[Rfam]
RNA: Plastid-psbA-4 3UTR RNA
Organism: Carya illinoinensis
RNA sequence: AGAAUAAAGGAGUAAUACCAAUCCUCUUUAUAGAACAAGAAGUUGAUUAUUGCUCCUUUAU
Numbered sequence: 001a002g003a004a005u006a007a008a009g010g011a012g013u014a015a016u017a018c019c020a021a022u023c024c025u026c027u028u029u030a031u032a033g034a035a036c037a038a039g040a041a042g043u044u045g046a047u048u049a050u051u052g053c054u055c056c057u058u059u060a061u
Base pairs, nucleotide, nucleotide: 006059007058008057009056010055011054012053013052014051015050016049017048021044025040026039027038028037